[Rfam]
RNA sequence: CCAGCGCCGACGGUCCGCUGUCGGCGAGGAUCUCAAC
Numbered sequence: 001c002c003a004g005c006g007c008c009g010a011c012g013g014u015c016c017g018c019u020g021u022c023g024g025c026g027a028g029g030a031u032c033u034c035a036a037c
Base pairs, nucleotide, nucleotide: 005026006025007024008023009022010021011020012019013018
Shown here is a 37-nucleotide sequence from Actinoplanes sp. TBRC 11911, a member of the family "CRISPR RNA direct repeat element". Lineage of the source: Bacteria > Actinomycetota > Actinomycetes > Micromonosporales > Actinoplanes. Rfam links the family to the GO term defense response. Rfam 15.1 lists 554 matches to the family in 30 species.